Shown here is a 233-nucleotide sequence from Streptomyces sp. DJ, a member of the family "Actinobacteria sRNA Ms_IGR-5". Taxonomically the source falls in Streptomyces (Bacteria, Bacillati, Actinomycetes, Streptomycetaceae). Rfam classes the family as a small RNA. A reference for the family is Li et al. (2013), "Identification of small RNAs in Mycobacterium smegmatis using heterologous Hfq", RNA.
RNA sequence: ACACGAGAAGGGAGGUGGUCCGGAGAAUGAGUGACUAUCGGACGCGUGAGGUGGCUGCGGGCUAGCCGCGCGCCUCGCCCGCCGUCUUCUCGUCACCGUACGGGGAGCGCGCCGCACGGCAACCGUGCGCGGCGGGCUCAAUUCCCAGCAGUCACCCGACCCGCGGGCCCGCCGGCACGUCCGUCCGGCGCCCGGGGCGCAAGCCCCGGGAGAAGGCCCGCGGGUCGUCCGCG
Numbered sequence: 001a002c003a004c005g006a007g008a009a010g011g012g013a014g015g016u017g018g019u020c021c022g023g024a025g026a027a028u029g030a031g032u033g034a035c036u037a038u039c040g041g042a043c044g045c046g047u048g049a050g051g052u053g054g055c056u057g058c059g060g061g062c063u064a065g066c067c068g069c070g071c072g073c074c075u076c077g078c079c080c081g082c083c084g085u086c087u088u089c090u091c092g093u094c095a096c097c098g099u100a101c102g103g104g105g106a107g108c109g110c111g112c113c114g115c116a117c118g119g120c121a122a123c124c125g126u127g128c129g130c131g132g133c134g135g136g137c138u139c140a141a142u143u144c145c146c147a148g149c150a151g152u153c154a155c156c157c158g159a160c161c162c163g164c165g166g167g168c169c170c171g172c173c174g175g176c177a178c179g180u181c182c183g184u185c186c187g188g189c190g191c192c193c194g195g196g197g198c199g200c201a202a203g204c205c206c207c208g209g210g211a212g213a214a215g216g217c218c219c220g221c222g223g224g225u226c227g228u229c230c231g232c233g
Stems, first nucleotide, its partner, number of pairs: 015058005060139001061137003065133002068130006157227013171189005